[Rfam]
RNA sequence: AUACUUAGUUGCUUAGCCGAAAGGCUAAUGGCUGGUGGUUUAUUGACCACCGGCCU
Numbered sequence: 001a002u003a004c005u006u007a008g009u010u011g012c013u014u015a016g017c018c019g020a021a022a023g024g025c026u027a028a029u030g031g032c033u034g035g036u037g038g039u040u041u042a043u044u045g046a047c048c049a050c051c052g053g054c055c056u
Stems, first nucleotide, its partner, number of pairs: 014027005030055010
This 56-nucleotide RNA sequence from Vibrio aerogenes belongs to the Rfam family "Pseudomonas sRNA P26". A reference for the family is Livny et al. (2006), "Identification of 17 Pseudomonas aeruginosa sRNAs and prediction of sRNA-encoding genes in 10 diverse pathogens using the bioinformatic tool sRNAPredict2", Nucleic Acids Res. From the family's description: This small RNA (sRNA) was computationally identified in the genome of the opportunistic pathogen Pseudomonas aeruginosa and its expression verified by northern blot analysis. Pairs were carried over by alignment from the consensus structure, which was predicted with RNAalifold. Rfam classes the family as a non-coding RNA gene. It scores 58 bits against the family's covariance model.